[Rfam]
RNA sequence: AUUGAAAACACGCUGAAUCCAUUUAUGGAAUGGGAGAACCAAUAUUUUGGGGUGAAUCACAAUUUUGUGUAGGAUAUUCUUUUCAAUCCGAAUCCGUCAGCUAAUCUCGUAAGCGCAAGAAAAGAAGAUAA
Numbered sequence: 001a002u003u004g005a006a007a008a009c010a011c012g013c014u015g016a017a018u019c020c021a022u023u024u025a026u027g028g029a030a031u032g033g034g035a036g037a038a039c040c041a042a043u044a045u046u047u048u049g050g051g052g053u054g055a056a057u058c059a060c061a062a063u064u065u066u067g068u069g070u071a072g073g074a075u076a077u078u079c080u081u082u083u084c085a086a087u088c089c090g091a092a093u094c095c096g097u098c099a100g101c102u103a104a105u106c107u108c109g110u111a112a113g114c115g116c117a118a119g120a121a122a123a124g125a126a127g128a129u130a131a
Base pairs, nucleotide, nucleotide: 011115012114013113014112018029019028020027030110031109032108033107034106035105040049041048050095051094052093058069059068060067061066072089073088074087075086
Dot-bracket structure: ..........((((...(((......)))((((((....((......))(((.....((((....))))..((((..........))))...))).........)))))).))))................
The family of this 131-nucleotide RNA from Anaerotignum neopropionicum is "c-di-AMP riboswitch aptamer (ydaO/yuaA leader)".
NCBI's taxonomy places the organism under Bacteria, Bacillota, Lachnospirales, Anaerotignaceae, Anaerotignum.
Pairs were carried over by alignment from the consensus structure.